This 146-nucleotide RNA sequence from Caviibacterium pharyngocola belongs to the Rfam family "Group II catalytic intron D1-D4-7". The organism belongs to Caviibacterium, within Bacteria. On this family, see Chu et al., EMBO J 2001: "Control of branch-site choice by a group II intron". The pairing is the family consensus, mapped onto this sequence.

[Rfam]
RNA sequence: CCUGCUAUGUAACUAGCAGUAACCUAGGGAUAGUGCAUUAUUGGUAACGAUAAUGUGCGGAGCUUCCUGACAAUGUACGCCCUGAAAAGGUUAUUGAACUUGUGAGAGAACAAUAAGAAAACAUUAAACUACAUAAUGUUGAGCGG
Numbered sequence: 001c002c003u004g005c006u007a008u009g010u011a012a013c014u015a016g017c018a019g020u021a022a023c024c025u026a027g028g029g030a031u032a033g034u035g036c037a038u039u040a041u042u043g044g045u046a047a048c049g050a051u052a053a054u055g056u057g058c059g060g061a062g063c064u065u066c067c068u069g070a071c072a073a074u075g076u077a078c079g080c081c082c083u084g085a086a087a088a089g090g091u092u093a094u095u096g097a098a099c100u101u102g103u104g105a106g107a108g109a110a111c112a113a114u115a116a117g118a119a120a121a122c123a124u125u126a127a128a129c130u131a132c133a134u135a136a137u138g139u140u141g142a143g144c145g146g
Base pairs, nucleotide, nucleotide: 002019003018004017005016006015007014027068028067029066030065033058034057035056036055037054038053039052040051041050042049043048081090082089083088091116092115093114094113100107101106121139122138123137124136125135126134